This 145-nucleotide RNA sequence from Paenibacillus solanacearum belongs to the Rfam family "c-di-AMP riboswitch aptamer (ydaO/yuaA leader)".

[Rfam]
RNA sequence: AAUUGAAUAAAGCCGAAUUUCUUAACGAAAACGGGGGAACCAUGAGUUUAGGGGUGAAUUCAGCGCAGCCGCAGCCGGCCGCUGAUAGGGUGACUGUACAUCCGAAUCCGUCAGCUAACCUCGUAGGCUUGCGUUGCGAUCGGGC
Numbered sequence: 001a002a003u004u005g006a007a008u009a010a011a012g013c014c015g016a017a018u019u020u021c022u023u024a025a026c027g028a029a030a031a032c033g034g035g036g037g038a039a040c041c042a043u044g045a046g047u048u049u050a051g052g053g054g055u056g057a058a059u060u061c062a063g064c065g066c067a068g069c070c071g072c073a074g075c076c077g078g079c080c081g082c083u084g085a086u087a088g089g090g091u092g093a094c095u096g097u098a099c100a101u102c103c104g105a106a107u108c109c110g111u112c113a114g115c116u117a118a119c120c121u122c123g124u125a126g127g128c129u130u131g132c133g134u135u136g137c138g139a140u141c142g143g144g145c
Stems, first nucleotide, its partner, number of pairs: 011129004018030003031124006041051001052109003060085006088103004